[Rfam]
RNA: Bacterial RNase P class A
RNA sequence: CAGGCGGGCUGGGCGGCCGCUGCCGUGCGGGUGCAAGCCUGGGCGGGAGAGGAAAGUCCGGACUCCGCAGGGCAGUGUGCCGGAUAACGUCCGGGAUUGCAGCGUGAAGGCUGCAAGACGGCUAGUGCCACAGAGAAGAUACCGCCGGAUCGCCGUGAGGCGCUCCGGUAAGGGUGAAAAGGUGCGGUAAGAGCGCACCGCCCCGGCGGUAACGCCCGGGGGCAGGGUAAACCCCACACGGAGCAAGACCAAAUAGGGAGGGAAGAACGGCGUGGCCCAGUUCGCCGUUCUGCGUACCGGCCCGGUGCGCCCACGUGGGCUUCGCAGGCGGCUUCGGCUGCCGGCGGCGGAAACCUCCGGGUAGGUUGCUGGAGCGCGCGCAGUAAUGCGCCGCCUAGAGGAAUGGCCGUCCUCGACAGAAUCCGGCUUACAGGCCCUGCUUGCAGA
Number, nucleotide and partner (000 for none) at each position: 001c443002a442003g441004g440005c439006g437007g436008g435009c434010u433011g431012g411013g410014c409015g408016g407017c406018c405019g000020c049021u048022g000023c046024c045025g044026u043027g000028c041029g040030g039031g038032u000033g000034c000035a000036a000037g000038c031039c030040u029041g028042g000043g026044c025045g024046g023047g000048a021049g020050a000051g000052g000053a000054a429055a428056g427057u000058c426059c425060g424061g423062a422063c243064u242065c241066c240067g000068c000069a000070g000071g345072g000073c343074a000075g239076u238077g237078u236079g235080c094081c093082g092083g091084a090085u000086a000087a000088c000089g000090u084091c083092c082093g081094g080095g119096a000097u116098u115099g114100c113101a112102g111103c110104g000105u000106g000107a000108a000109g000110g103111c102112u101113g100114c099115a098116a097117g000118a000119c095120g234121g233122c000123u000124a000125g232126u231127g228128c227129c226130a000131c000132a000133g000134a000135g000136a000137a000138g000139a000140u000141a000142c173143c172144g169145c168146c167147g166148g165149a164150u000151c162152g161153c160154c159155g000156u000157g000158a000159g154160g153161c152162g151163c000164u149165c148166c147167g146168g145169u144170a000171a000172g143173g142174g000175u000176g000177a000178a000179a000180a000181g199182g198183u197184g196185c195186g194187g000188u000189a000190a000191g000192a000193g000194c186195g185196c184197a183198c182199c181200g223201c221202c220203c219204c218205g217206g215207c214208g213209g000210u000211a000212a000213c208214g207215c206216c000217c205218g204219g203220g202221g201222g000223c200224a000225g000226g129227g128228u127229a000230a000231a126232c125233c121234c120235c079236a078237c077238a076239c075240g066241g065242a064243g063244c000245a000246a000247g367248a366249c365250c364251a000252a000253a000254u000255a000256g000257g358258g357259a356260g355261g354262g000263a000264a000265g000266a000267a000268c000269g000270g000271c000272g000273u000274g000275g000276c000277c000278c000279a000280g000281u000282u000283c000284g000285c000286c000287g000288u000289u000290c000291u000292g000293c000294g000295u000296a000297c000298c000299g000300g000301c000302c000303c000304g000305g000306u000307g000308c000309g000310c000311c000312c000313a000314c000315g000316u000317g000318g000319g000320c000321u000322u000323c000324g000325c000326a000327g000328g000329c000330g000331g000332c000333u000334u000335c000336g000337g000338c350339u349340g348341c347342c000343g073344g000345c071346g000347g341348c340349g339350g338351a000352a000353a000354c261355c260356u259357c258358c257359g000360g000361g000362u000363a000364g250365g249366u248367u247368g000369c000370u000371g000372g000373a000374g394375c393376g392377c000378g391379c390380g389381c388382a387383g000384u000385a000386a000387u382388g381389c380390g379391c378392c376393g375394c374395c000396u000397a000398g000399a000400g000401g000402a000403a000404u000405g018406g017407c016408c015409g014410u013411c012412c000413u000414c000415g000416a000417c000418a000419g000420a000421a000422u062423c061424c060425g059426g058427c056428u055429u054430a000431c011432a000433g010434g009435c008436c007437c006438u000439g005440c004441u003442u002443g001444c000445a000446g000447a000